RNA sequence: UGUGUCCGAAUCUUGGCACUGGAAGAAUUCACAGAUUGCUUUAUAAUCGUGAUUCUUUUAUUGCCACACUUCGUGCAUA
Number, nucleotide and partner (000 for none) at each position: 001u000002g000003u077004g076005u075006c000007c073008g072009a071010a070011u000012c000013u000014u066015g065016g064017c063018a062019c000020u060021g059022g058023a056024a000025g055026a054027a053028u000029u052030c051031a050032c049033a000034g047035a000036u000037u000038g000039c000040u000041u000042u000043a000044u000045a000046a000047u034048c000049g032050u031051g030052a029053u027054u026055c025056u023057u000058u022059u021060a020061u000062u018063g017064c016065c015066a014067c000068a000069c000070u010071u009072c008073g007074u000075g005076c004077a003078u000079a000
RNA: mir-263 microRNA precursor family
Organism: Agrilus planipennis